[Rfam]
RNA sequence: AGGCCUUAGAAAUCAAGCAUGGGUGAGGCCUGGGAUUAAUUUAUCAAGGCGACCCAUACUUGGUUUCCGAGGCUC
Numbered sequence: 001a002g003g004c005c006u007u008a009g010a011a012a013u014c015a016a017g018c019a020u021g022g023g024u025g026a027g028g029c030c031u032g033g034g035a036u037u038a039a040u041u042u043a044u045c046a047a048g049g050c051g052a053c054c055c056a057u058a059c060u061u062g063g064u065u066u067c068c069g070a071g072g073c074u075c
Stems, first nucleotide, its partner, number of pairs: 002074006009067006016060002021055004028050004
This 75-nucleotide RNA from Acipenser ruthenus belongs to the Rfam family "mir-551 microRNA precursor family".